[Rfam]
RNA sequence: GAUAAAAAGCAGAAGCACCCGCUUCUCGCCUAGGUUACUAGAGUAACCGGGCAAAUCACUUAAUUACUGGCAUAUUUAUAUGUUUUAGACUAGUAAAUUAAUGGUGCGGGGUGCAAAAUUGCACGUCGCUUUUUUGAUACC
Numbered sequence: 001g002a003u004a005a006a007a008a009g010c011a012g013a014a015g016c017a018c019c020c021g022c023u024u025c026u027c028g029c030c031u032a033g034g035u036u037a038c039u040a041g042a043g044u045a046a047c048c049g050g051g052c053a054a055a056u057c058a059c060u061u062a063a064u065u066a067c068u069g070g071c072a073u074a075u076u077u078a079u080a081u082g083u084u085u086u087a088g089a090c091u092a093g094u095a096a097a098u099u100a101a102u103g104g105u106g107c108g109g110g111g112u113g114c115a116a117a118a119u120u121g122c123a124c125g126u127c128g129c130u131u132u133u134u135u136g137a138u139a140c141c
Base pairs, nucleotide, nucleotide: 011026012025013024014023015022016021028052029051030050034047035046036045037044038043106129107128108127109126111124112123113122114121